The family of this 80-nucleotide sequence from Geotrypetes seraphini is "mir-499 microRNA precursor family". The organism belongs to Geotrypetes, within Eukaryota. The match comes from Rfam's covariance-model search (91 bits).
RNA sequence: GAGAGAGAGGCAGUUAAGACUUGCAGUGAUGUUUAGAUAAAUUAUUACAUGAACAUCACUCUGAGUCUGUGCUGUCUCUC
Numbered sequence: 001g002a003g004a005g006a007g008a009g010g011c012a013g014u015u016a017a018g019a020c021u022u023g024c025a026g027u028g029a030u031g032u033u034u035a036g037a038u039a040a041a042u043u044a045u046u047a048c049a050u051g052a053a054c055a056u057c058a059c060u061c062u063g064a065g066u067c068u069g070u071g072c073u074g075u076c077u078c079u080c
Stems, first nucleotide, its partner, number of pairs: 017068007026059010